[Rfam]
Shown here is a 68-nucleotide RNA from Strongylocentrotus purpuratus, a member of the family "tRNA". Pairs were carried over by alignment from the consensus structure, which is taken from published work. Lineage of the source: Eukaryota > Echinozoa > Echinacea > Strongylocentrotidae > Strongylocentrotus. Its family is annotated with triplet codon-amino acid adaptor activity in the Gene Ontology.
RNA sequence: GCUUUAUGAAUACAACAGUAUUUUUGACUUCCAAUCAGACAGUCUUGGUGAAAAUUUAAGAUAAAGCA
Numbered sequence: 001g002c003u004u005u006a007u008g009a010a011u012a013c014a015a016c017a018g019u020a021u022u023u024u025u026g027a028c029u030u031c032c033a034a035u036c037a038g039a040c041a042g043u044c045u046u047g048g049u050g051a052a053a054a055u056u057u058a059a060g061a062u063a064a065a066g067c068a
Stems, first nucleotide, its partner, number of pairs: 001067007010021004023039005044060005